[Rfam]
RNA sequence: GAUCAUGGUAACAUUUGACCAGGGCUCCCUGACCUAUACAGGCCUCUGCUAUGGGGGUGAUGGCUAGUCCUGGUGUCUGAGUGAUU
Numbered sequence: 001g002a003u004c005a006u007g008g009u010a011a012c013a014u015u016u017g018a019c020c021a022g023g024g025c026u027c028c029c030u031g032a033c034c035u036a037u038a039c040a041g042g043c044c045u046c047u048g049c050u051a052u053g054g055g056g057g058u059g060a061u062g063g064c065u066a067g068u069c070c071u072g073g074u075g076u077c078u079g080a081g082u083g084a085u086u
Stems, first nucleotide, its partner, number of pairs: 001086006011076002018074009027063002030060001032058004039053002041050003
RNA: Small nucleolar RNA SNORD86
Organism: Phocoena sinus